RNA sequence: CGGCGAGCCGCGGGCCGGAAACCGCGGCGGUGGGUGUAUCCCACCUGAAAGG
Numbered sequence: 001c002g003g004c005g006a007g008c009c010g011c012g013g014g015c016c017g018g019a020a021a022c023c024g025c026g027g028c029g030g031u032g033g034g035u036g037u038a039u040c041c042c043a044c045c046u047g048a049a050a051g052g
Base pairs, nucleotide, nucleotide: 007028008027009026010025011024012023029045030044031043032042033041034040
Source information: Rfam assigns this 52-nucleotide RNA to the family "M23 RNA". Rfam classes the family as a small RNA. The family's consensus secondary structure is taken from published work.